Shown here is a 92-nucleotide RNA from Cricetulus griseus, a member of the family "Small nucleolar RNA SNORD116".
A search with the family's covariance model found it, with a score of 83 bits.
Gene Ontology terms of the family: nucleolus and RNA processing.
It is annotated as a C/D-box small nucleolar RNA.
[Rfam]
RNA sequence: GGAUCGAUGAUGAUUCAAGUCAAACAUUCCUUGGAAAAGCUGAACAAAAUGAGUGAAAUCUCAGUUCGCCUCUCUCAUCGGGACUGAGGUCC
Numbered sequence: 001g002g003a004u005c006g007a008u009g010a011u012g013a014u015u016c017a018a019g020u021c022a023a024a025c026a027u028u029c030c031u032u033g034g035a036a037a038a039g040c041u042g043a044a045c046a047a048a049a050u051g052a053g054u055g056a057a058a059u060c061u062c063a064g065u066u067c068g069c070c071u072c073u074c075u076c077a078u079c080g081g082g083a084c085u086g087a088g089g090u091c092c
Stems, first nucleotide, its partner, number of pairs: 001092005025055005031047003